[Rfam]
RNA sequence: AUAAAUGGUAGAGGUGCAAAAAGCAUGAGUACAUUAUCACAAUGUUUGGUGACAGUGAUAAUGAAAAGGGCAAUUUGCCGAAGUGUAGUGAUGACACCAAUCAUCAUUAUGCUGGGUCAUUAUAGAAUAUAUAAUGGACUGUCACGUCAGUGGAGAGCUAUCUAAGUG
Numbered sequence: 001a002u003a004a005a006u007g008g009u010a011g012a013g014g015u016g017c018a019a020a021a022a023g024c025a026u027g028a029g030u031a032c033a034u035u036a037u038c039a040c041a042a043u044g045u046u047u048g049g050u051g052a053c054a055g056u057g058a059u060a061a062u063g064a065a066a067a068g069g070g071c072a073a074u075u076u077g078c079c080g081a082a083g084u085g086u087a088g089u090g091a092u093g094a095c096a097c098c099a100a101u102c103a104u105c106a107u108u109a110u111g112c113u114g115g116g117u118c119a120u121u122a123u124a125g126a127a128u129a130u131a132u133a134a135u136g137g138a139c140u141g142u143c144a145c146g147u148c149a150g151u152g153g154a155g156a157g158c159u160a161u162c163u164a165a166g167u168g
Base pairs, nucleotide, nucleotide: 007162008161009160010159011158016078017077018076019075020074023071024070032063033062034061035060036059037058038057039056082113083112084111085110086109087108088107089106090105091104092103093102114140115139117137118136119135120134121133122132123131124130142153143152144151145150

Annotation: The family of this 168-nucleotide RNA from Longibaculum muris is "Lysine riboswitch aptamer". Its family is annotated with lysine biosynthetic process in the Gene Ontology. The base pairs follow the family's consensus structure, which is taken from published work. NCBI's taxonomy places the organism under Bacteria, Bacillati, Erysipelotrichia, Erysipelotrichales, Longibaculum. A search with the family's covariance model found it, with a score of 113 bits.